[Rfam]
RNA sequence: GGGCUAAUGAUGAUAAAUUUUAUAUCUUAGCGGAUUUCAGUGAGAUUUAAUCAAUGAUCUGAAUGUUACACACACUGAAGCCU
Numbered sequence: 001g002g003g004c005u006a007a008u009g010a011u012g013a014u015a016a017a018u019u020u021u022a023u024a025u026c027u028u029a030g031c032g033g034a035u036u037u038c039a040g041u042g043a044g045a046u047u048u049a050a051u052c053a054a055u056g057a058u059c060u061g062a063a064u065g066u067u068a069c070a071c072a073c074a075c076u077g078a079a080g081c082c083u
Base pairs, nucleotide, nucleotide: 001083002082003081004080005079
Small nucleolar RNA R11/Z151: an 83-nucleotide RNA from Papaver nudicaule. Pairs were carried over by alignment from the consensus structure, which was predicted with PFOLD. On this family, see Barneche et al., J Mol Biol 2001: "Identification of 66 box C/D snoRNAs in Arabidopsis thaliana: extensive gene duplications generated multiple isoforms predicting new ribosomal RNA 2'-O-methylation sites". The organism belongs to Papaver, within Eukaryota. Its family is annotated with nucleolus and RNA processing in the Gene Ontology. The family's RNA type in Rfam is C/D-box small nucleolar RNA.